[Rfam]
RNA sequence: AACUGUAUAAAAGCGCCUGGACUAAGCUUUGGACGAGAAAAAAGCUUAGUUGACGAGGAGGAGGUUUAUCGAGUGUUCGGCGGAUGCCUCCCGGUUGUUGCGAUUACAACCGCAAACCUUUCCUUAAAACAAAGAGGCGACUCUUUGCACAAAGGGAAAGGUAUAAUCGCCA
Numbered sequence: 001a002a003c004u005g006u007a008u009a010a011a012a013g014c015g016c017c018u019g020g021a022c023u024a025a026g027c028u029u030u031g032g033a034c035g036a037g038a039a040a041a042a043a044g045c046u047u048a049g050u051u052g053a054c055g056a057g058g059a060g061g062a063g064g065u066u067u068a069u070c071g072a073g074u075g076u077u078c079g080g081c082g083g084a085u086g087c088c089u090c091c092c093g094g095u096u097g098u099u100g101c102g103a104u105u106a107c108a109a110c111c112g113c114a115a116a117c118c119u120u121u122c123c124u125u126a127a128a129a130c131a132a133a134g135a136g137g138c139g140a141c142u143c144u145u146u147g148c149a150c151a152a153a154g155g156g157a158a159a160g161g162u163a164u165a166a167u168c169g170c171c172a
Base pairs, nucleotide, nucleotide: 020051021050022049023048024047025046026045027044029042060091061090062089063088064087069080070079071078072077092112093111094110095109096108097107116162117161118160119159120158121157122156130147131146132145133144134143135142136141
The record is a 172-nucleotide RNA sequence from Anoxybacteroides amylolyticum, which matches "glmS glucosamine-6-phosphate activated ribozyme aptamer" in Rfam. Rfam classes the family as a riboswitch. For this family Rfam cites "Evidence for preorganization of the glmS ribozyme ligand binding pocket" (Hampel and Tinsley, Biochemistry, 2006). NCBI's taxonomy places the organism under Bacteria, Bacillati, Bacillota, Anoxybacillaceae, Anoxybacteroides. The family's consensus secondary structure is taken from published work. This entry contains a glucosamine-6-phosphate activated ribozyme that is found in the mRNA for GlmS. GlmS is an enzyme that uses fructose-6-phosphate and glutamine to generate glucosamine-6-phosphate.